[Rfam]
RNA sequence: CUCCAUGUAUAUUUGGAACCUGUCUUCUGUGACAGUCUCCCUUCCUAGCCACGGAAGAGCAUAUUCUUGGUUUUUGCAAAGCUAUCACCAUUUAGUUGGUAUCAGAUUCUGAUUUGCACAGGUAACAUUC
Numbered sequence: 001c002u003c004c005a006u007g008u009a010u011a012u013u014u015g016g017a018a019c020c021u022g023u024c025u026u027c028u029g030u031g032a033c034a035g036u037c038u039c040c041c042u043u044c045c046u047a048g049c050c051a052c053g054g055a056a057g058a059g060c061a062u063a064u065u066c067u068u069g070g071u072u073u074u075u076g077c078a079a080a081g082c083u084a085u086c087a088c089c090a091u092u093u094a095g096u097u098g099g100u101a102u103c104a105g106a107u108u109c110u111g112a113u114u115u116g117c118a119c120a121g122g123u124a125a126c127a128u129u130c
Base pairs, nucleotide, nucleotide: 002055003054004053006051007050015041016040018038020035021034022033023032024031068127069126071124074121075120076117077116078115079114082105083104087100088099089098090097
A member of the RNA family "Small nucleolar RNA SNORA24" from Mesocricetus auratus, 130 nucleotides long. The family's RNA type in Rfam is H/ACA-box small nucleolar RNA. ACA24 is a member of the H/ACA class of snoRNA that guide the sites of modification of uridines to pseudouridines. The family's consensus secondary structure was predicted with RNAfold.